SAM riboswitch aptamer (S box leader): a 116-nucleotide RNA sequence from Staphylococcus simulans. Clan: SAM clan. The organism belongs to Staphylococcus, within Bacteria. Gene Ontology term of the family: regulation of gene expression. It scores 73 bits against the family's covariance model. Rfam describes the family as follows. The SAM riboswitch is found upstream of a number of genes which code for proteins involved in methionine or cysteine biosynthesis in Gram-positive bacteria.
RNA sequence: CUCUUAUCCUGAGUGGCGGAGGGACAUGGACCCAACGAAGCCCAGCAACCUCUCCUUGUCGGAGAAAGGUGCCAAACCGUUUGCAAAUAUCAUUAAAGAUGUUUGAACGAUAAGAG
Numbered sequence: 001c002u003c004u005u006a007u008c009c010u011g012a013g014u015g016g017c018g019g020a021g022g023g024a025c026a027u028g029g030a031c032c033c034a035a036c037g038a039a040g041c042c043c044a045g046c047a048a049c050c051u052c053u054c055c056u057u058g059u060c061g062g063a064g065a066a067a068g069g070u071g072c073c074a075a076a077c078c079g080u081u082u083g084c085a086a087a088u089a090u091c092a093u094u095a096a097a098g099a100u101g102u103u104u105g106a107a108c109g110a111u112a113a114g115a116g
Stems, first nucleotide, its partner, number of pairs: 001116008013043001015042003021033003027083003045072003049069002051065004084105008